Shown here is a 253-nucleotide sequence from Paenibacillus sabuli, a member of the family "PyrR binding site".
Rfam describes the family as follows. This family represents the PyrR binding site and terminator structure. This RNA structure is found upstream of a variety of genes involved in pyrimidine biosynthesis and transport. The alignment also includes a portion of the antiterminator structure.
The family's RNA type in Rfam is cis-regulatory element.
The match comes from Rfam's covariance-model search (58 bits).
[Rfam]
RNA sequence: AGUACCUUUAAUGCAGUCCAGAGAGGCUGUCAAGGUAGCGUAAACAAACGGAGGAACCAUCCCUGCUGCGGCGAAUGUCCCGGCAAGCUGCGGCUUGCCGGACUUGGCUGCGCACAGGCGCGGUUCGCGCGGAGGCCCAUCGCCCUUCCGCGCGUGCACGAGACAAGCUUGCCAGCUUGUCGACGCCUUGCGCCGAGCAGCCGGCACUCCGUCUUGCAAGCUCCUUGCGGUCUGACGCAAGGAGCUUUUUUAU
Numbered sequence: 001a002g003u004a005c006c007u008u009u010a011a012u013g014c015a016g017u018c019c020a021g022a023g024a025g026g027c028u029g030u031c032a033a034g035g036u037a038g039c040g041u042a043a044a045c046a047a048a049c050g051g052a053g054g055a056a057c058c059a060u061c062c063c064u065g066c067u068g069c070g071g072c073g074a075a076u077g078u079c080c081c082g083g084c085a086a087g088c089u090g091c092g093g094c095u096u097g098c099c100g101g102a103c104u105u106g107g108c109u110g111c112g113c114a115c116a117g118g119c120g121c122g123g124u125u126c127g128c129g130c131g132g133a134g135g136c137c138c139a140u141c142g143c144c145c146u147u148c149c150g151c152g153c154g155u156g157c158a159c160g161a162g163a164c165a166a167g168c169u170u171g172c173c174a175g176c177u178u179g180u181c182g183a184c185g186c187c188u189u190g191c192g193c194c195g196a197g198c199a200g201c202c203g204g205c206a207c208u209c210c211g212u213c214u215u216g217c218a219a220g221c222u223c224c225u226u227g228c229g230g231u232c233u234g235a236c237g238c239a240a241g242g243a244g245c246u247u248u249u250u251u252a253u
Stems, first nucleotide, its partner, number of pairs: 003037006013030006046214001048212006218247012